[Rfam]
RNA sequence: CGUGAGCGCCGUGCUGAUGAGCGAAUGGAAUCCGCGGCGCGACACGUUAAAUGACGUCCUUCGCACCGCUUGACAAUAGUUCUAGCGGCCCAAUCACGGGAGAGAACGCUGAGCGUUACAAC
Numbered sequence: 001c002g003u004g005a006g007c008g009c010c011g012u013g014c015u016g017a018u019g020a021g022c023g024a025a026u027g028g029a030a031u032c033c034g035c036g037g038c039g040c041g042a043c044a045c046g047u048u049a050a051a052u053g054a055c056g057u058c059c060u061u062c063g064c065a066c067c068g069c070u071u072g073a074c075a076a077u078a079g080u081u082c083u084a085g086c087g088g089c090c091c092a093a094u095c096a097c098g099g100g101a102g103a104g105a106a107c108g109c110u111g112a113g114c115g116u117u118a119c120a121a122c
Base pairs, nucleotide, nucleotide: 001046002045003044004043006040007039008038009037010036011035066088067087068086069085070084072081073080074079
Dot-bracket structure: ((((.((((((.......................))))))..))))...................(((((.(((....)))..)))))..................................